[Rfam]
RNA sequence: CCAAGCUUUGAGCCAAAUUCCUUGGUACCGGGAAACGGGGGAACCGUUUUGGGUGAAUUGAUCUUGUUUCGGAGGGAUCAUAGGGGAAUACCUUCUACCGAAUCCUUAAGCUAACCUCGUAGGCAAUUGGAAGGGGACAA
Numbered sequence: 001c002c003a004a005g006c007u008u009u010g011a012g013c014c015a016a017a018u019u020c021c022u023u024g025g026u027a028c029c030g031g032g033a034a035a036c037g038g039g040g041g042a043a044c045c046g047u048u049u050u051g052g053g054u055g056a057a058u059u060g061a062u063c064u065u066g067u068u069u070c071g072g073a074g075g076g077a078u079c080a081u082a083g084g085g086g087a088a089u090a091c092c093u094u095c096u097a098c099c100g101a102a103u104c105c106u107u108a109a110g111c112u113a114a115c116c117u118c119g120u121a122g123g124c125a126a127u128u129g130g131a132a133g134g135g136g137a138c139a140a
Stems, first nucleotide, its partner, number of pairs: 012124003018034005035120006051105003059080007083099002086096001
A member of the RNA family "c-di-AMP riboswitch aptamer (ydaO/yuaA leader)" from Paenibacillus nuruki, 140 nucleotides long. Rfam describes the family as follows. This family represents a conserved RNA structure found upstream of the ydaO and yuaA genes in Bacillus subtilis and related genes in other bacteria. The source organism's lineage runs through Bacteria, Bacilli, Caryophanales, Paenibacillaceae and Paenibacillus. It scores 67 bits against the family's covariance model.